[Rfam]
RNA sequence: GUUUGUCUUCAGGGCAGGGUGUAAUUCCCGACCGGCGGUAAAGUCCGCGACCUGCAGUGAAUACUGCGGCUGACCCGGUGCAAUUCCGGGACCGAUAGUAAAGUCUAGAUGGAAGAAGAUAUGC
Numbered sequence: 001g002u003u004u005g006u007c008u009u010c011a012g013g014g015c016a017g018g019g020u021g022u023a024a025u026u027c028c029c030g031a032c033c034g035g036c037g038g039u040a041a042a043g044u045c046c047g048c049g050a051c052c053u054g055c056a057g058u059g060a061a062u063a064c065u066g067c068g069g070c071u072g073a074c075c076c077g078g079u080g081c082a083a084u085u086c087c088g089g090g091a092c093c094g095a096u097a098g099u100a101a102a103g104u105c106u107a108g109a110u111g112g113a114a115g116a117a118g119a120u121a122u123g124c
Base pairs, nucleotide, nucleotide: 004121005120006119007118008117009116010115017029018028019027031104032103033094034093035048036047037046038045043092044091052069053068074090075089076088077087078086096107097106098105
RNA: FMN riboswitch aptamer (RFN element)